[Rfam]
Nucleotides: 072
Base pairs, nucleotide, nucleotide: 008027009026010025011024012023013022014021046066047065048064049063050062051061052060053059
Number, partner (000 for none) and nucleotide at each position: 001000c002000u003000g004000c005000c006000u007000c008027a009026u010025g011024a012023a013022g014021g015000u016000u017000g018000a019000g020000g021014c022013c023012u024011u025010c026009a027008u028000a029000c030000c031000u032000c033000c034000c035000u036000g037000u038000u039000g040000g041000a042000c043000u044000u045000u046066g047065g048064c049063c050062g051061a052060g053059c054000g055000u056000a057000a058000u059053g060052c061051u062050c063049g064048g065047c066046c067000u068000u069000u070000u071000u072000u
A member of the RNA family "Singlet oxygen resistance RNA X" from Pontibaca salina, 72 nucleotides long. Taxonomically the source falls in Pontibaca (Bacteria, Pseudomonadati, Pseudomonadota, Roseobacteraceae). Gene Ontology term of the family: response to photooxidative stress. It is annotated as a small RNA. It scores 52 bits against the family's covariance model. From the family's description: SorX (RSs2461)like SorY is a singlet oxygen induced sRNA that counteracts oxidative stress by targeting mRNA for a transporter in Rhodobacter. It also has an impact on resistance against organic hydroperoxides. It targets SD sequence of potA mRNA via an aSD sequence. The aSD sequence and some neighbouring nucleotides are identical to the one of SorY (targets takP mRNA).